Description
Shown here is an 83-nucleotide sequence from Calothrix sp. PCC 7507, a member of the family "Fluoride riboswitch aptamer (crcB RNA motif)".
[Rfam]
RNA sequence: AACGACUAUGGCGAUGGAGCUCGCCAAAACCGCCUCUUCAGUAAAAGAUUUAUAACUGCAAGGCUGAUGGCUCCUACUUUUCC
Numbered sequence: 001a002a003c004g005a006c007u008a009u010g011g012c013g014a015u016g017g018a019g020c021u022c023g024c025c026a027a028a029a030c031c032g033c034c035u036c037u038u039c040a041g042u043a044a045a046a047g048a049u050u051u052a053u054a055a056c057u058g059c060a061a062g063g064c065u066g067a068u069g070g071c072u073c074c075u076a077c078u079u080u081u082c083c
Stems, first nucleotide, its partner, number of pairs: 010025004016074006032064004

Pairs were carried over by alignment from the consensus structure, which is taken from published work.